A member of the RNA family "c-di-GMP-I riboswitch aptamer" from Halanaerobium saccharolyticum, 88 nucleotides long.
RNA sequence: GACAGAAAAGGGCAACUCAAUCCGAAAGGAUAGAGGCGCAAAGUUUUCAGACCUAAUGUUUUCAAACAAUGGUUGUGAAACUACCUGG
Numbered sequence: 001g002a003c004a005g006a007a008a009a010g011g012g013c014a015a016c017u018c019a020a021u022c023c024g025a026a027a028g029g030a031u032a033g034a035g036g037c038g039c040a041a042a043g044u045u046u047u048c049a050g051a052c053c054u055a056a057u058g059u060u061u062u063c064a065a066a067c068a069a070u071g072g073u074u075g076u077g078a079a080a081c082u083a084c085c086u087g088g
Stems, first nucleotide, its partner, number of pairs: 012039002017034002020031001022029002042082004047078003051073003058067003